[Rfam]
RNA sequence: GAAAGCCUGUCUGGUAAGGUCUAACCAACCACCAGUAGCGAGUCUUGGGUGGCUGUCAGUAAUGGCAGUUGCUAAGCGUAGACAGCGAGGAAAUAGAGAGUGUGAUUGAGCCUCGAAAUUUUGACAUCCAGAAGGCUGACGCUUUAAUUCCAGCGGAAAGCAACAUAAACCGAAUCGUUAUGGUAAGAAGUGGUUUACUUCUGCGGGGUCAAAGAGCA
Numbered sequence: 001g002a003a004a005g006c007c008u009g010u011c012u013g014g015u016a017a018g019g020u021c022u023a024a025c026c027a028a029c030c031a032c033c034a035g036u037a038g039c040g041a042g043u044c045u046u047g048g049g050u051g052g053c054u055g056u057c058a059g060u061a062a063u064g065g066c067a068g069u070u071g072c073u074a075a076g077c078g079u080a081g082a083c084a085g086c087g088a089g090g091a092a093a094u095a096g097a098g099a100g101u102g103u104g105a106u107u108g109a110g111c112c113u114c115g116a117a118a119u120u121u122u123g124a125c126a127u128c129c130a131g132a133a134g135g136c137u138g139a140c141g142c143u144u145u146a147a148u149u150c151c152a153g154c155g156g157a158a159a160g161c162a163a164c165a166u167a168a169a170c171c172g173a174a175u176c177g178u179u180a181u182g183g184u185a186a187g188a189a190g191u192g193g194u195u196u197a198c199u200u201c202u203g204c205g206g207g208g209u210c211a212a213a214g215a216g217c218a
Stems, first nucleotide, its partner, number of pairs: 011035004018030003022186001024184002038086002042083004046078002048073011107212001108210001110209006129203006135161003140155004166197007175188002
Shown here is a 218-nucleotide RNA sequence from Ruminococcus sp. AM42-11, a member of the family "Group II catalytic intron D1-D4-6".
The base pairs follow the family's consensus structure.
About the family: Group II introns are found in rRNA, tRNA and mRNA of organelles in fungi, plants and protists, and also in mRNA in bacteria.
The literature on the family includes a 2001 paper in Trends Genet by Bonen and Vogel, "The ins and outs of group II introns".